Shown here is an 80-nucleotide sequence from Pantoea ananatis, a member of the family "ABC transporter regulator". A reference for the family is Chao et al. (2012), "An atlas of Hfq-bound transcripts reveals 3' UTRs as a genomic reservoir of regulatory small RNAs", EMBO J. By type it is a cis-regulatory element.
RNA sequence: UUUUACCUGUGUGAUGUGGUGAUUUCAAUCGCUAAUAACUUGAUUGAGAAGGGCAAUUUUUUAAUUGCCCUUAAUUUUAU
Numbered sequence: 001u002u003u004u005a006c007c008u009g010u011g012u013g014a015u016g017u018g019g020u021g022a023u024u025u026c027a028a029u030c031g032c033u034a035a036u037a038a039c040u041u042g043a044u045u046g047a048g049a050a051g052g053g054c055a056a057u058u059u060u061u062u063a064a065u066u067g068c069c070c071u072u073a074a075u076u077u078u079a080u
Base pairs, nucleotide, nucleotide: 025047026046027045028044029043030042031041049072050071051070052069053068054067055066056065057064058063